[Rfam]
RNA sequence: UCAUCUGUCGCUCCUACCCAUUGAAUGGUCCGAUGAAGUGUUUGGAUCAUGGUGAUGCAAGCAGUCUGCCACUCAUGAUGUCACGAGAAGUCCACUGAAUCUUAUCAUUUAGAUGAAGGAGAAGUUGUAACAAGAUUUUCAUAAGGGAACCUAUGGAAAGAUCAUUG
Number, nucleotide and partner (000 for none) at each position: 001u134002c000003a000004u130005c000006u127007g126008u000009c124010g000011c121012u120013c119014c118015u117016a000017c115018c000019c000020a000021u111022u000023g110024a109025a108026u107027g106028g105029u104030c000031c000032g101033a100034u099035g000036a000037a096038g095039u094040g093041u000042u000043u090044g000045g000046a000047u086048c085049a000050u083051g082052g081053u080054g079055a000056u077057g076058c000059a000060a000061g000062c000063a000064g000065u000066c000067u000068g000069c000070c000071a000072c000073u000074c000075a000076u057077g056078a000079u054080g053081u052082c051083a050084c000085g048086a047087g000088a000089a000090g043091u000092c000093c040094a039095c038096u037097g000098a000099a034100u033101c032102u000103u000104a029105u028106c027107a026108u025109u024110u023111a021112g000113a000114u000115g017116a000117a015118g014119g013120a012121g011122a000123a000124g009125u000126u007127g006128u000129a000130a004131c000132a000133a000134g001135a000136u159137u158138u157139u156140c155141a154142u153143a152144a000145g150146g000147g000148a000149a000150c145151c000152u143153a142154u141155g140156g139157a138158a137159a136160g000161a000162u000163c000164a000165u000166u000167g000